[Rfam]
RNA sequence: CCUUCUGUGAUGAUUUUAUCAAGAUGACUUUCGUUCUUCUGAGUUUCCUGAAGCCACAUUUAGAUACUGAGAAGG
Numbered sequence: 001c002c003u004u005c006u007g008u009g010a011u012g013a014u015u016u017u018a019u020c021a022a023g024a025u026g027a028c029u030u031u032c033g034u035u036c037u038u039c040u041g042a043g044u045u046u047c048c049u050g051a052a053g054c055c056a057c058a059u060u061u062a063g064a065u066a067c068u069g070a071g072a073a074g075g
Base pairs, nucleotide, nucleotide: 001075002074003073005071